[Rfam]
RNA sequence: UAAGACGAUCCACGGCAAAUAACAUUUUAUUCCCAUAGCUAUUGGCAAAAUAACCUUGAAAUUUUGAGGGAUGACCUCAUCUGAUCUCCAGUAGCAGUUUUGUCCAGUUCCAUGGGAGGUGUUAUGCGUCUGGAUCGUCUUAC
Numbered sequence: 001u002a003a004g005a006c007g008a009u010c011c012a013c014g015g016c017a018a019a020u021a022a023c024a025u026u027u028u029a030u031u032c033c034c035a036u037a038g039c040u041a042u043u044g045g046c047a048a049a050a051u052a053a054c055c056u057u058g059a060a061a062u063u064u065u066g067a068g069g070g071a072u073g074a075c076c077u078c079a080u081c082u083g084a085u086c087u088c089c090a091g092u093a094g095c096a097g098u099u100u101u102g103u104c105c106a107g108u109u110c111c112a113u114g115g116g117a118g119g120u121g122u123u124a125u126g127c128g129u130c131u132g133g134a135u136c137g138u139c140u141u142a143c
Stems, first nucleotide, its partner, number of pairs: 002141011014130003019125001021123003025044001028041002031037001054069006070081004084120006091113002
Rfam assigns this 143-nucleotide RNA from Brenneria goodwinii to the family "Yersinia sRNA 155(RyfD)". A search with the family's covariance model found it, with a score of 104 bits. The pairing is the family consensus, mapped onto this sequence. Rfam classes the family as a small RNA. The source organism's lineage runs through Bacteria, Gammaproteobacteria, Enterobacterales, Pectobacteriaceae and Brenneria.